[Rfam]
RNA sequence: UUAUUAGCAUUAAGUGUCAGAAUGAUUCGGUUAUUAGCCUUUUAUCAUUUAUUUUAUCAUUACCCACAUUACCGGCAUUUAUGCCGGUUUUUUUU
Numbered sequence: 001u002u003a004u005u006a007g008c009a010u011u012a013a014g015u016g017u018c019a020g021a022a023u024g025a026u027u028c029g030g031u032u033a034u035u036a037g038c039c040u041u042u043u044a045u046c047a048u049u050u051a052u053u054u055u056a057u058c059a060u061u062a063c064c065c066a067c068a069u070u071a072c073c074g075g076c077a078u079u080u081a082u083g084c085c086g087g088u089u090u091u092u093u094u095u
Stems, first nucleotide, its partner, number of pairs: 014038002019034001021032003071088006
Notes:
Shown here is a 95-nucleotide RNA sequence from Salmonella enterica, a member of the family "rseX Hfq binding RNA". Taxonomically the source falls in Salmonella enterica subsp. enterica serovar Kentucky (Bacteria, Enterobacterales, Enterobacteriaceae, Salmonella). For this family Rfam cites "Down-regulation of porins by a small RNA bypasses the essentiality of the regulated intramembrane proteolysis protease RseP in Escherichia coli" (Douchin et al., J Biol Chem, 2006). The base pairs follow the family's consensus structure, which was predicted with RNAalifold. Rfam's curators put it in the seed alignment.